[Rfam]
RNA: mir-8834 microRNA precursor family
Organism: Nyctereutes procyonoides
RNA sequence: AGGAGGAACAGCCGCAGUGGCUAUGGCAACUCUGGAAGCCUGGAUUCAGCCUCCGCAGGAACUACGGGCUCGGGGCUCUCGGUCUCCUCCGCAGGGCCUGGAGGCUCCGGGGCGGG
Numbered sequence: 001a002g003g004a005g006g007a008a009c010a011g012c013c014g015c016a017g018u019g020g021c022u023a024u025g026g027c028a029a030c031u032c033u034g035g036a037a038g039c040c041u042g043g044a045u046u047c048a049g050c051c052u053c054c055g056c057a058g059g060a061a062c063u064a065c066g067g068g069c070u071c072g073g074g075g076c077u078c079u080c081g082g083u084c085u086c087c088u089c090c091g092c093a094g095g096g097c098c099u100g101g102a103g104g105c106u107c108c109g110g111g112g113c114g115g116g
Stems, first nucleotide, its partner, number of pairs: 002108004009100003012096002019084004025078001028077001030075006039059004